[Rfam]
RNA sequence: AUAUUUUAAGGACUUCUCUUCCUGGUUCUUCGCAGAGUCAGGAAAAGCUGGAUUGAGAGGGCAAAAGAAAAAAGUU
Numbered sequence: 001a002u003a004u005u006u007u008a009a010g011g012a013c014u015u016c017u018c019u020u021c022c023u024g025g026u027u028c029u030u031c032g033c034a035g036a037g038u039c040a041g042g043a044a045a046a047g048c049u050g051g052a053u054u055g056a057g058a059g060g061g062c063a064a065a066a067g068a069a070a071a072a073a074g075u076u
Stems, first nucleotide, its partner, number of pairs: 014059005022051004029044003